[Rfam]
RNA sequence: AAUCAAGAGUUCCAGUCAGAGGCCCUGGCCGACUGGACGGCAACCCUCGCAACCAUAGUGGGGUGCCCCAGGUGAGGAUUCGACGCCGCCGGCAGCUGCCGCGGGCGUAAGUAUGGCGC
Numbered sequence: 001a002a003u004c005a006a007g008a009g010u011u012c013c014a015g016u017c018a019g020a021g022g023c024c025c026u027g028g029c030c031g032a033c034u035g036g037a038c039g040g041c042a043a044c045c046c047u048c049g050c051a052a053c054c055a056u057a058g059u060g061g062g063g064u065g066c067c068c069c070a071g072g073u074g075a076g077g078a079u080u081c082g083a084c085g086c087c088g089c090c091g092g093c094a095g096c097u098g099c100c101g102c103g104g105g106c107g108u109a110a111g112u113a114u115g116g117c118g119c
Stems, first nucleotide, its partner, number of pairs: 001080004009038001011037006021030002039067003044063003048058001083108005088102002091100003